This 151-nucleotide RNA from Lihuaxuella thermophila belongs to the Rfam family "FMN riboswitch aptamer (RFN element)". Pairs were carried over by alignment from the consensus structure, which is taken from published work.

[Rfam]
RNA sequence: UUAAUCCUUCGGGGCAGGGUGAAAUUCCCGACCGGCGGUGAUGGUGCCUGUUCGACCAGGAACAGCGUGCCUCAGUCCGUGACCCGCUUGAUGCGGUGGAUUCGGUGAGAUUCCGAAACCGACAGUAUAGUCUGGAUGGGAGAAGGAUGAU
Numbered sequence: 001u002u003a004a005u006c007c008u009u010c011g012g013g014g015c016a017g018g019g020u021g022a023a024a025u026u027c028c029c030g031a032c033c034g035g036c037g038g039u040g041a042u043g044g045u046g047c048c049u050g051u052u053c054g055a056c057c058a059g060g061a062a063c064a065g066c067g068u069g070c071c072u073c074a075g076u077c078c079g080u081g082a083c084c085c086g087c088u089u090g091a092u093g094c095g096g097u098g099g100a101u102u103c104g105g106u107g108a109g110a111u112u113c114c115g116a117a118a119c120c121g122a123c124a125g126u127a128u129a130g131u132c133u134g135g136a137u138g139g140g141a142g143a144a145g146g147a148u149g150a151u
Stems, first nucleotide, its partner, number of pairs: 004148007017029003031131002033121002035080004075119002084096002101117005123134003
NCBI's taxonomy places the organism under Bacteria, Bacillota, Caryophanales, Thermoactinomycetaceae, Lihuaxuella. The match comes from Rfam's covariance-model search (112 bits).